This 136-nucleotide sequence from a Bacteroidales bacterium belongs to the Rfam family "FMN riboswitch aptamer (RFN element)". It scores 109 bits against the family's covariance model.

[Rfam]
RNA sequence: AAAAUUCUUCAGGGCAGGGCGUAAUUCCCGACCGGCGGUGACAAUCCGCGACUCCUUUGCAGUUGAAAAACAGCACAGGACUGAACCAGUGAAACUCUGGUAUCGACAGUUAAAGUCUGGAUGAGAGAAGAAUUGA
Numbered sequence: 001a002a003a004a005u006u007c008u009u010c011a012g013g014g015c016a017g018g019g020c021g022u023a024a025u026u027c028c029c030g031a032c033c034g035g036c037g038g039u040g041a042c043a044a045u046c047c048g049c050g051a052c053u054c055c056u057u058u059g060c061a062g063u064u065g066a067a068a069a070a071c072a073g074c075a076c077a078g079g080a081c082u083g084a085a086c087c088a089g090u091g092a093a094a095c096u097c098u099g100g101u102a103u104c105g106a107c108a109g110u111u112a113a114a115g116u117c118u119g120g121a122u123g124a125g126a127g128a129a130g131a132a133u134u135g136a
Stems, first nucleotide, its partner, number of pairs: 003134008017029003031116002033105002035049004044103002053080004085101005107119003